The family of this 120-nucleotide sequence is "DUF3268 RNA". The sequence is in the family's curated seed alignment. It is annotated as a small RNA.
[Rfam]
RNA sequence: AAGAAAAGCUUGCGCUCAGGCUUUCUGCGCGGACGAAGUCGACCGGCCGCCAACACAUACCCAGAAGGGUAUGGAGCAGUUACGGAACGGUGCAUUGAGCCGAUCCAUACGGCGCAAGCA
Numbered sequence: 001a002a003g004a005a006a007a008g009c010u011u012g013c014g015c016u017c018a019g020g021c022u023u024u025c026u027g028c029g030c031g032g033a034c035g036a037a038g039u040c041g042a043c044c045g046g047c048c049g050c051c052a053a054c055a056c057a058u059a060c061c062c063a064g065a066a067g068g069g070u071a072u073g074g075a076g077c078a079g080u081u082a083c084g085g086a087a088c089g090g091u092g093c094a095u096u097g098a099g100c101c102g103a104u105c106c107a108u109a110c111g112g113c114g115c116a117a118g119c120a
Stems, first nucleotide, its partner, number of pairs: 008119009025079004029050004034045002056073007084106003088102004